[Rfam]
RNA sequence: GUAAAAGGAACAUCGGCUAAGGGCGCCACGUCCUGUGGCAACGCCGAUAUGACCUACAUCGUGUAGG
Dot-bracket structure: ...........((((((.......(((((.....)))))...))))))....(((((.....)))))
RNA: Bacillaceae-1 RNA